[Rfam]
Nucleotides: 141
Base pairs, nucleotide, nucleotide: 008092009091010090011089012088013026014025015024016023017022027063028062029061030060031059032058033057034056035055036054037053038052064087065086066085067084069082070081110139111138112137115134116133117132118131120130121129122128
Number, partner (000 for none) and nucleotide at each position: 001000a002000a003000c004000u005000a006000g007000g008092g009091c010090u011089u012088c013026u014025g015024c016023c017022g018000u019000u020000a021000g022017u023016g024015g025014c026013a027063c028062a029061u030060g031059g032058a033057g034056a035055g036054g037053g038052g039000g040000g041000c042000u043000g044000u045000g046000g047000c048000c049000u050000a051000u052038c053037c054036c055035c056034u057033u058032u059031c060030u061029g062028u063027g064087c065086g066085g067084a068000a069082u070081c071000g072000c073000u074000a075000u076000c077000a078000u079000g080000a081070g082069a083000c084067u085066u086065c087064g088012g089011a090010a091009g092008c093000a094000u095000a096000a097000u098000u099000u100000u101000u102000g103000g104000c105000a106000a107000a108000g109000g110139g111138g112137u113000a114000g115134c116133u117132g118131g119000u120130a121129a122128u123000c124000g125000u126000g127000u128122a129121u130120u131118c132117u133116g134115g135000a136000a137112a138111u139110u140000c141000a